[Rfam]
RNA: RNase MRP
RNA sequence: UCCUCGCUCAAAGAAUCGCAUUCAAAGCUUACGCACAGGAAAUCCUUCGGGAUUCUCCUCUUCUUUCCAUGAAAGAAAACAGCUUUGGGAGAAAGUCCCCGGACACCCUGACCUAAUAUACCUGGUCACGCAAUGCGGAAACGCGCCGCCAUAAAAGCAAUUUGAUAGCGGCUUAUUUGCCCUAUUCCCUACCGAUGCUCUGUCUAUAUCCGACGCCUUUCACCGGGUGGAAAUAAUGGCGGUAUAGCUGGGUGUUGGAGAGGGGUUGUUUCAUUGGGUUGCCUUUCGUCGUGUUUGGAUAGUCAUGCGAUUGCCUUGUUUUUCGCCUUCGGGGAAAGAUGGGUAACUCAAUGGGGCUCAUUCUUGAGGCGAGG
Numbered sequence: 001u002c003c004u005c006g007c008u009c010a011a012a013g014a015a016u017c018g019c020a021u022u023c024a025a026a027g028c029u030u031a032c033g034c035a036c037a038g039g040a041a042a043u044c045c046u047u048c049g050g051g052a053u054u055c056u057c058c059u060c061u062u063c064u065u066u067c068c069a070u071g072a073a074a075g076a077a078a079a080c081a082g083c084u085u086u087g088g089g090a091g092a093a094a095g096u097c098c099c100c101g102g103a104c105a106c107c108c109u110g111a112c113c114u115a116a117u118a119u120a121c122c123u124g125g126u127c128a129c130g131c132a133a134u135g136c137g138g139a140a141a142c143g144c145g146c147c148g149c150c151a152u153a154a155a156a157g158c159a160a161u162u163u164g165a166u167a168g169c170g171g172c173u174u175a176u177u178u179g180c181c182c183u184a185u186u187c188c189c190u191a192c193c194g195a196u197g198c199u200c201u202g203u204c205u206a207u208a209u210c211c212g213a214c215g216c217c218u219u220u221c222a223c224c225g226g227g228u229g230g231a232a233a234u235a236a237u238g239g240c241g242g243u244a245u246a247g248c249u250g251g252g253u254g255u256u257g258g259a260g261a262g263g264g265g266u267u268g269u270u271u272c273a274u275u276g277g278g279u280u281g282c283c284u285u286u287c288g289u290c291g292u293g294u295u296u297g298g299a300u301a302g303u304c305a306u307g308c309g310a311u312u313g314c315c316u317u318g319u320u321u322u323u324c325g326c327c328u329u330c331g332g333g334g335a336a337a338g339a340u341g342g343g344u345a346a347c348u349c350a351a352u353g354g355g356g357c358u359c360a361u362u363c364u365u366g367a368g369g370c371g372a373g374g
Stems, first nucleotide, its partner, number of pairs: 002374006008367004014312006022089001023087006038068005094358002097356004110127004180278003184274002191269002200265002203262001248258004314343003319338006